[Rfam]
RNA: Connexin-43 internal ribosome entry site (IRES)
Organism: Erinaceus europaeus
RNA sequence: GCCUUUUACGAGGUAUCAGCACUUUUCUUUCAUUAGAAGGAAGGAGUGAGCAGAGUACCAAACAGCAGCAGAGUUUUAAAGUUUAAAUAGACAGGUCUGAGUGCCUGAACUGGCUUUCUUAUUUUACUUCGUCCACUAAGGAGUGAAAUCACUUGGCGUUCCUACUUCACUUCUUUUAAGAGAAAGAGUAAGUUUAAAAGUU
Numbered sequence: 001g002c003c004u005u006u007u008a009c010g011a012g013g014u015a016u017c018a019g020c021a022c023u024u025u026u027c028u029u030u031c032a033u034u035a036g037a038a039g040g041a042a043g044g045a046g047u048g049a050g051c052a053g054a055g056u057a058c059c060a061a062a063c064a065g066c067a068g069c070a071g072a073g074u075u076u077u078a079a080a081g082u083u084u085a086a087a088u089a090g091a092c093a094g095g096u097c098u099g100a101g102u103g104c105c106u107g108a109a110c111u112g113g114c115u116u117u118c119u120u121a122u123u124u125u126a127c128u129u130c131g132u133c134c135a136c137u138a139a140g141g142a143g144u145g146a147a148a149u150c151a152c153u154u155g156g157c158g159u160u161c162c163u164a165c166u167u168c169a170c171u172u173c174u175u176u177u178a179a180g181a182g183a184a185a186g187a188g189u190a191a192g193u194u195u196a197a198a199a200g201u202u
Base pairs, nucleotide, nucleotide: 003019004018007015008014009013029143030142031141033139034138035137036136039133040130041129042128043127048123049122053119055117070098071097072096074094075093099114103110153197154196155195156194158193159192160191165186166185167184168182170180171179172178